[Rfam]
RNA sequence: GGGGGCGUAAAGGUUUCGACGUGGGUUUGGAACUUGAGGCUGCAUGUCGUGUUACUCUGGGUCACGUAAAAACUGGGGAACUUUAAAAUAAACGCAGACGAUAAUUUCGCGAUAGCAGCCUAGUUGCUGCUCGUCCCUCUUAGUCCUCCUGCCGACUAAGACUGGACGUCAUUAUGCAGGGAACUACUUUAGGGGUGUCUCGACUUGAAGUAGAUUAAUUGGGACUGGCUAAGCAUAGAGCCUGCCACUUGGCGCUAUGUGAGGUGAGAUAUUAGUGAAGUUGGCUAAGCAUGUAGAUGCAGCAAGGAAAAGAUUUGCGGACAGGGGUUCGACUCCCCUCGUCUCCACCA
Dot-bracket structure: (((((((............(((((((((....((((..((..((((([[[[...((((((..]]]]......))))))...................................((((((......))))))(((((.((((.(((.[[[[[[.))).))))..))))).......]]]]]]..((((((((.....[[[[[....)))))))).......]]]]]...((..((((((..(..[[[[[[[)...))))))..)).............]]].]]]]...))))).....))..))))....)))))))))...(((((.......))))))))))))....
transfer-messenger RNA: a 350-nucleotide RNA sequence from Clostridioides difficile. By type it is a non-coding RNA gene. For this family Rfam cites "Phylogenetic analysis of tmRNA secondary structure" (Williams and Bartel, RNA, 1996). Rfam links the family to the GO term RNA catabolic process. The source organism's lineage runs through Bacteria, Bacillota, Peptostreptococcales, Peptostreptococcaceae and Clostridioides.